[Rfam]
RNA sequence: GGAUAUCACUUUUGUUAUCCCCGACCAAUAAUACAAUGACACGUGAGAUAAUUUUUUCAUGUGUCAUUAUGUUAUUAGCUGGGGAUAGCAAAAUAGCAUUAUCC
Numbered sequence: 001g002g003a004u005a006u007c008a009c010u011u012u013u014g015u016u017a018u019c020c021c022c023g024a025c026c027a028a029u030a031a032u033a034c035a036a037u038g039a040c041a042c043g044u045g046a047g048a049u050a051a052u053u054u055u056u057u058c059a060u061g062u063g064u065c066a067u068u069a070u071g072u073u074a075u076u077a078g079c080u081g082g083g084g085a086u087a088g089c090a091a092a093a094u095a096g097c098a099u100u101a102u103c104c
Stems, first nucleotide, its partner, number of pairs: 002103004010093009020083004025078001027076007035068014
Rfam assigns this 104-nucleotide RNA sequence from Prunus armeniaca to the family "MIR6274 microRNA precursor family".
Rfam 15.1 lists 342 matches to the family in 8 species.
Its family is annotated with miRNA-mediated post-transcriptional gene silencing and RISC complex in the Gene Ontology.
The organism belongs to Prunus, within Eukaryota.
The match comes from Rfam's covariance-model search (82 bits).